Annotation:
The record is a 181-nucleotide RNA from Liquorilactobacillus cacaonum, which matches "Lysine riboswitch aptamer" in Rfam. Taxonomically the source falls in Liquorilactobacillus cacaonum (Bacteria, Bacillati, Bacillota, Lactobacillaceae).
RNA sequence: AGCAUCGAAAAGAGGUUGCAAAUGAUAAGAGUAGCUAUUUAUGAGAUGUUGGAGCAUCCACGACUAAUAGUGAAAGGAGAAUUUGCCGAAAUAAUAUGUUGCUGCAACAAUAUAUUAUUGGGACUUGACUUAAAAGGUCAAGGACUGUCAUGCGUUUUAUGCAUGGAGUGCUAUCGAGUGU
Numbered sequence: 001a002g003c004a005u006c007g008a009a010a011a012g013a014g015g016u017u018g019c020a021a022a023u024g025a026u027a028a029g030a031g032u033a034g035c036u037a038u039u040u041a042u043g044a045g046a047u048g049u050u051g052g053a054g055c056a057u058c059c060a061c062g063a064c065u066a067a068u069a070g071u072g073a074a075a076g077g078a079g080a081a082u083u084u085g086c087c088g089a090a091a092u093a094a095u096a097u098g099u100u101g102c103u104g105c106a107a108c109a110a111u112a113u114a115u116u117a118u119u120g121g122g123a124c125u126u127g128a129c130u131u132a133a134a135a136g137g138u139c140a141a142g143g144a145c146u147g148u149c150a151u152g153c154g155u156u157u158u159a160u161g162c163a164u165g166g167a168g169u170g171c172u173a174u175c176g177a178g179u180g181u
Base pairs, nucleotide, nucleotide: 006176007175008174011172012171018086019085020084021083022082023081026078034071035070036069037068038067039066090119091118092117093116094115095114096113097112098111099110100109101108120146121145124142125141126140127139128138129137130136148166149165150164151163152162153161154160
Rfam describes the family as follows. Riboswitches are metabolite binding domains within certain messenger RNAs that serve as precision sensors for their corresponding targets. Allosteric rearrangement of mRNA structure is mediated by ligand binding, and this results in modulation of gene expression. This family includes riboswitches that sense lysine in a number of genes involved in lysine metabolism, including lysC. A search with the family's covariance model found it, with a score of 113 bits.